The family of this 82-nucleotide RNA sequence from an Olavius algarvensis Delta 1 endosymbiont is "c-di-GMP-I riboswitch aptamer".
Gene Ontology term of the family: cyclic-di-GMP binding.
It scores 54 bits against the family's covariance model.
Lineage of the source: Bacteria > delta/epsilon subdivisions > Deltaproteobacteria.
[Rfam]
RNA sequence: UAAACGAAAAGGCAAAGCUGCCGAGCAGUCACGCAAAGCCACGGGUUUCUAUAUUUGAGUUUGUGAUAGCCGGGCUGCCGAA
Numbered sequence: 001u002a003a004a005c006g007a008a009a010a011g012g013c014a015a016a017g018c019u020g021c022c023g024a025g026c027a028g029u030c031a032c033g034c035a036a037a038g039c040c041a042c043g044g045g046u047u048u049c050u051a052u053a054u055u056u057g058a059g060u061u062u063g064u065g066a067u068a069g070c071c072g073g074g075c076u077g078c079c080g081a082a
Stems, first nucleotide, its partner, number of pairs: 012034002017029005037076004042072003045067003053060002